The record is an 86-nucleotide sequence from Darwinula stevensoni, which matches "mir-276 microRNA precursor family" in Rfam. The literature on the family includes a 2010 paper in BMC Genomics by Skalsky et al., "Identification of microRNAs expressed in two mosquito vectors, Aedes albopictus and Culex quinquefasciatus". The family has 42 seed sequences and 200 matches in Rfam 15.1. Pairs were carried over by alignment from the consensus structure, which was predicted with RNAalifold.
RNA sequence: AUCUAGAGUCGUCUUCAGCGAGGUAAGGAGUUCCUACGUGGCAUCUGGGAUGUAGGAACUUCAUACCGUGCUCUAGACGAUUCGGG
Numbered sequence: 001a002u003c004u005a006g007a008g009u010c011g012u013c014u015u016c017a018g019c020g021a022g023g024u025a026a027g028g029a030g031u032u033c034c035u036a037c038g039u040g041g042c043a044u045c046u047g048g049g050a051u052g053u054a055g056g057a058a059c060u061u062c063a064u065a066c067c068g069u070g071c072u073c074u075a076g077a078c079g080a081u082u083c084g085g086g
Stems, first nucleotide, its partner, number of pairs: 012077003017072004022067004028061010